[Rfam]
RNA sequence: GAGUUACCUCUUUGUUUGUUUUGAUUAAAGAUUCAGCACCUUUAUCAAAACGGGUAACUCUCUACUUUUCAAGAAGAUGUGUCAGAUCUUGUCUGAACUAAUUCAAAUUAGCUAUUGACGCCAUAGUCUCUUGUUAUAUUUUCAAUUUAUCUCUUAGCCCUUGAGGGGCUAGAUAAAGAAU
Numbered sequence: 001g002a003g004u005u006a007c008c009u010c011u012u013u014g015u016u017u018g019u020u021u022u023g024a025u026u027a028a029a030g031a032u033u034c035a036g037c038a039c040c041u042u043u044a045u046c047a048a049a050a051c052g053g054g055u056a057a058c059u060c061u062c063u064a065c066u067u068u069u070c071a072a073g074a075a076g077a078u079g080u081g082u083c084a085g086a087u088c089u090u091g092u093c094u095g096a097a098c099u100a101a102u103u104c105a106a107a108u109u110a111g112c113u114a115u116u117g118a119c120g121c122c123a124u125a126g127u128c129u130c131u132u133g134u135u136a137u138a139u140u141u142u143c144a145a146u147u148u149a150u151c152u153c154u155u156a157g158c159c160c161u162u163g164a165g166g167g168g169c170u171a172g173a174u175a176a177a178g179a180a181u
Stems, first nucleotide, its partner, number of pairs: 001060007009053002018051008027043001029041002061179002067136001073130002076128002081098002083095005100124001102123001152173003156170005

The family of this 181-nucleotide RNA from Thalassotalea euphylliae is "Proteobacterial sRNA psRNA2". The literature on the family includes a 2010 paper in FEMS Microbiol Lett by Gvakharia et al., "Computational prediction and transcriptional analysis of sRNAs in Nitrosomonas europaea".